[Rfam]
RNA sequence: GAGGGUUGGCCCCUCGGGAUCGGCUUUCAGGAGCGGGUCUCAAACCACUCCAAGCUGCUGCGGUCAAGAGCCGUGGUGGUGAGCGUUGGAGGAAAAGUUCAAGGAAAUACCUUGAGCAGGU
Numbered sequence: 001g002a003g004g005g006u007u008g009g010c011c012c013c014u015c016g017g018g019a020u021c022g023g024c025u026u027u028c029a030g031g032a033g034c035g036g037g038u039c040u041c042a043a044a045c046c047a048c049u050c051c052a053a054g055c056u057g058c059u060g061c062g063g064u065c066a067a068g069a070g071c072c073g074u075g076g077u078g079g080u081g082a083g084c085g086u087u088g089g090a091g092g093a094a095a096a097g098u099u100c101a102a103g104g105a106a107a108u109a110c111c112u113u114g115a116g117c118a119g120g121u
Base pairs, nucleotide, nucleotide: 001015002014003013004012005011016041017040018039019038020037021036023034024033025032026031046120048091049090050089051088052087053086054080055079057077058076059075061073062072063071064070097117098116099115100114101113102112

Background
This 121-nucleotide RNA from Skermanella aerolata belongs to the Rfam family "Group II catalytic intron D1-D4-2". The base pairs follow the family's consensus structure. From the family's description: Group II introns are found in rRNA, tRNA and mRNA of organelles in fungi, plants and protists, and also in mRNA in bacteria. Rfam links the family to the GO term Group II intron splicing.